[Rfam]
RNA sequence: AAAGGUGGCUUGAAAAGAGUCUACCUAGUAGAUGAGGGAUUGUUCCUCUUAUCUGCGACACCGUCAAAUUGCCGGGAAAUCUCGUCAAGCCCUUGAUACCACCCUGUCUGGGAAACCGAGGCAGUGGAACCGCGUCGAAAGUCGUGGGCAUGGUAAAAAUUUAAGGGAUAGAGACAAUCGGCAGCCAAGCCCUAAGGGUCACUCCGGUGUCCUAUGGGUGCAGUUCACAGACUAAAUGUCGGUGGGUCCAGCUCGUGCUGGGCUUAAGAUAUAGUCGGCCCGCCCCGAGAGGGGAUC
Numbered sequence: 001a002a003a004g005g006u007g008g009c010u011u012g013a014a015a016a017g018a019g020u021c022u023a024c025c026u027a028g029u030a031g032a033u034g035a036g037g038g039a040u041u042g043u044u045c046c047u048c049u050u051a052u053c054u055g056c057g058a059c060a061c062c063g064u065c066a067a068a069u070u071g072c073c074g075g076g077a078a079a080u081c082u083c084g085u086c087a088a089g090c091c092c093u094u095g096a097u098a099c100c101a102c103c104c105u106g107u108c109u110g111g112g113a114a115a116c117c118g119a120g121g122c123a124g125u126g127g128a129a130c131c132g133c134g135u136c137g138a139a140a141g142u143c144g145u146g147g148g149c150a151u152g153g154u155a156a157a158a159a160u161u162u163a164a165g166g167g168a169u170a171g172a173g174a175c176a177a178u179c180g181g182c183a184g185c186c187a188a189g190c191c192c193u194a195a196g197g198g199u200c201a202c203u204c205c206g207g208u209g210u211c212c213u214a215u216g217g218g219u220g221c222a223g224u225u226c227a228c229a230g231a232c233u234a235a236a237u238g239u240c241g242g243u244g245g246g247u248c249c250a251g252c253u254c255g256u257g258c259u260g261g262g263c264u265u266a267a268g269a270u271a272u273a274g275u276c277g278g279c280c281c282g283c284c285c286c287g288a289g290a291g292g293g294g295a296u297c
Stems, first nucleotide, its partner, number of pairs: 059244005065238002070183006080174004184224002189219004197212002200209002228277001230276005246263007283294004

Shown here is a 297-nucleotide RNA sequence from Chlorella variabilis, a member of the family "Group I catalytic intron". Group I catalytic introns are large self-splicing ribozymes. A search with the family's covariance model found it, with a score of 101 bits. Lineage of the source: Eukaryota > Viridiplantae > Chlorophyta > Trebouxiophyceae > Chlorella. A reference for the family is Cech (1990), "Self-splicing of group I introns", Annu Rev Biochem. The base pairs follow the family's consensus structure, which is taken from published work.